[Rfam]
RNA sequence: CAGUGGAGGAAGGUCCCACCCAGAGAGUUGUCGAUUGAUCUGGAAGCUGACGAGCGGUUCGGCUGGGUAACUGGUCGGAUCGAAGCCUCGUGACAAAGGCCGCCUUGGGUGGCGGAGCGAUCCAGCGGGCCGUAACGCGA
Numbered sequence: 001c002a003g004u005g006g007a008g009g010a011a012g013g014u015c016c017c018a019c020c021c022a023g024a025g026a027g028u029u030g031u032c033g034a035u036u037g038a039u040c041u042g043g044a045a046g047c048u049g050a051c052g053a054g055c056g057g058u059u060c061g062g063c064u065g066g067g068u069a070a071c072u073g074g075u076c077g078g079a080u081c082g083a084a085g086c087c088u089c090g091u092g093a094c095a096a097a098g099g100c101c102g103c104c105u106u107g108g109g110u111g112g113c114g115g116a117g118c119g120a121u122c123c124a125g126c127g128g129g130c131c132g133u134a135a136c137g138c139g140a
Stems, first nucleotide, its partner, number of pairs: 020043005050091005055082006064073001066071001099113005117133003

Shown here is a 140-nucleotide RNA from Xanthobacter dioxanivorans, a member of the family "Group II catalytic intron D1-D4-4". Rfam describes the family as follows. Group II introns are found in rRNA, tRNA and mRNA of organelles in fungi, plants and protists, and also in mRNA in bacteria. Pairs were carried over by alignment from the consensus structure. The source organism's lineage runs through Bacteria, Pseudomonadota, Alphaproteobacteria, Xanthobacteraceae and Xanthobacter. On this family, see Bonen and Vogel, Trends Genet 2001: "The ins and outs of group II introns".